This 112-nucleotide RNA sequence from Closterium sp. NIES-68 belongs to the Rfam family "mraW RNA".
The family's RNA type in Rfam is cis-regulatory element.
[Rfam]
RNA sequence: UGAGCAUGAACCCGACCCGACCCGACCCGACCCGACCCGACCCGACUUUGCCCUACCCGAUGUCGGGGUCGGGUCGGGUCGGGUCGGGUCAAGUCGGGUCGGAGUUCAGGAA
Numbered sequence: 001u002g003a004g005c006a007u008g009a010a011c012c013c014g015a016c017c018c019g020a021c022c023c024g025a026c027c028c029g030a031c032c033c034g035a036c037c038c039g040a041c042c043c044g045a046c047u048u049u050g051c052c053c054u055a056c057c058c059g060a061u062g063u064c065g066g067g068g069u070c071g072g073g074u075c076g077g078g079u080c081g082g083g084u085c086g087g088g089u090c091a092a093g094u095c096g097g098g099u100c101g102g103a104g105u106u107c108a109g110g111a112a
Stems, first nucleotide, its partner, number of pairs: 010099007019090001021088019041067006048060001